[Rfam]
RNA sequence: UCCCCCGUGGUGUAAUUGGCAGCACAUGAGGUUUUGGUCCUUAGUGUCCAGGUUCGAGUCCUGGCGGGGGAG
Number, nucleotide and partner (000 for none) at each position: 001u071002c070003c069004c068005c067006c066007g065008u000009g000010g025011u024012g023013u022014a000015a000016u000017u000018g000019g000020c000021a000022g013023c012024a011025c010026a000027u043028g042029a041030g040031g039032u000033u000034u000035u000036g000037g000038u000039c031040c030041u029042u028043a027044g000045u000046g000047u000048c064049c063050a062051g061052g060053u000054u000055c000056g000057a000058g000059u000060c052061c051062u050063g049064g048065c007066g006067g005068g004069g003070g002071a001072g000